Shown here is a 74-nucleotide sequence, a member of the family "mir-252 microRNA precursor family". Its family is annotated with miRNA-mediated post-transcriptional gene silencing and RISC complex in the Gene Ontology. The family is grouped with related families in Rfam's "mir-252 microRNA precursor family". It scores 63 bits against the family's covariance model. The base pairs follow the family's consensus structure, which was predicted with RNAalifold. The literature on the family includes a 2006 paper in Cell by Ruby et al., "Large-scale sequencing reveals 21U-RNAs and additional microRNAs and endogenous siRNAs in C. elegans".
[Rfam]
RNA sequence: UUUCGAUUAUAAGUAGUAGUGCCGCAGGUAACCACCUCAUCGGAUUACCUACUGCCUUCUGCUUAGAAUCGGAA
Dot-bracket structure: (((((((..(((((((.((....(.(((((...............))))).)...)).)))))))..)))))))